[Rfam]
RNA sequence: GAUUGACGACAGGGGCGCCGGCGCGGCACGCCGCACCGGCUGAGAGGCACCCUUAUCACCUGACCCGGAUAAUGCCGGCGGAGGGAGUCGUGCCGGCUCGCCU
Numbered sequence: 001g002a003u004u005g006a007c008g009a010c011a012g013g014g015g016c017g018c019c020g021g022c023g024c025g026g027c028a029c030g031c032c033g034c035a036c037c038g039g040c041u042g043a044g045a046g047g048c049a050c051c052c053u054u055a056u057c058a059c060c061u062g063a064c065c066c067g068g069a070u071a072a073u074g075c076c077g078g079c080g081g082a083g084g085g086a087g088u089c090g091u092g093c094c095g096g097c098u099c100g101c102c103u
Base pairs, nucleotide, nucleotide: 006091007090008089009088010087011053012052013051014050016047017040018039019038020037021036059084060083061082065078066077067076068075
Rfam assigns this 103-nucleotide RNA sequence from Halomonas stenophila to the family "TPP riboswitch aptamer (THI element)". Taxonomically the source falls in Halomonas (Bacteria, Pseudomonadota, Gammaproteobacteria, Oceanospirillales). Pairs were carried over by alignment from the consensus structure, which is taken from published work. About the family: Vitamin B(1) in its active form thiamin pyrophosphate (TPP) is an essential coenzyme that is synthesised by coupling of pyrimidine and thiazole moieties in bacteria. Rfam links the family to the GO term thiamine pyrophosphate binding.